[Rfam]
RNA sequence: GUGGGCGGAAGCUCAUUGUAGAGGUCACAUGCUGAGUGCUCGUCACUCCACCAAUCACCUCGGGGAAGGUCUGAGACAGGAGCCAAUGGUUACCCUCGCAGGGUAUCACCUGAUUCGGGUGAGCGAGUGAACAGAAAUAAUGGGCCACGGUGGGCAGUUCUCACAGGAGAAGCCAGGCGGAGCAGUUUCUCAGCUCCUCUGGUGGAUGUGAAGCUCGCAGGCUUGGAAUCACUCGCGGCUGGCAAAUGAGUGCGAUGUAUGAGGUGGGGCACUGCUCCAGAACCCAAUUCAGACUACUCUCCACCCAC
Numbered sequence: 001g002u003g004g005g006c007g008g009a010a011g012c013u014c015a016u017u018g019u020a021g022a023g024g025u026c027a028c029a030u031g032c033u034g035a036g037u038g039c040u041c042g043u044c045a046c047u048c049c050a051c052c053a054a055u056c057a058c059c060u061c062g063g064g065g066a067a068g069g070u071c072u073g074a075g076a077c078a079g080g081a082g083c084c085a086a087u088g089g090u091u092a093c094c095c096u097c098g099c100a101g102g103g104u105a106u107c108a109c110c111u112g113a114u115u116c117g118g119g120u121g122a123g124c125g126a127g128u129g130a131a132c133a134g135a136a137a138u139a140a141u142g143g144g145c146c147a148c149g150g151u152g153g154g155c156a157g158u159u160c161u162c163a164c165a166g167g168a169g170a171a172g173c174c175a176g177g178c179g180g181a182g183c184a185g186u187u188u189c190u191c192a193g194c195u196c197c198u199c200u201g202g203u204g205g206a207u208g209u210g211a212a213g214c215u216c217g218c219a220g221g222c223u224u225g226g227a228a229u230c231a232c233u234c235g236c237g238g239c240u241g242g243c244a245a246a247u248g249a250g251u252g253c254g255a256u257g258u259a260u261g262a263g264g265u266g267g268g269g270c271a272c273u274g275c276u277c278c279a280g281a282a283c284c285c286a287a288u289u290c291a292g293a294c295u296a297c298u299c300u301c302c303a304c305c306c307a308c
Base pairs, nucleotide, nucleotide: 001308002307003306004305007302008301009300012263013262014261015260016259021061022060023059024058034048035047036046037045038044071292072291073290074289075288081240082239083238084237091105092104093103094102095101106122107121108120109119110118111117123236124235125234126233127232128231129230144222145221146220265279266278267277268276269275270274
A member of the RNA family "Nuclear RNase P" from Stegastes partitus, 308 nucleotides long. The base pairs follow the family's consensus structure, which is taken from published work. By type it is a ribozyme. Its Rfam clan is "RNaseP clan". It scores 224 bits against the family's covariance model. Ribonuclease P (RNase P) is a ubiquitous endoribonuclease, found in archaea, bacteria and eukarya as well as chloroplasts and mitochondria. Its best characterised activity is the generation of mature 5'-ends of tRNAs by cleaving the 5'-leader elements of precursor-tRNAs. Cellular RNase Ps are ribonucleoproteins. RNA from bacterial RNase Ps retains its catalytic activity in the absence of the protein subunit, i.e. it is a ribozyme. Gene Ontology terms of the family: ribonuclease P activity, ribonuclease P complex and tRNA processing.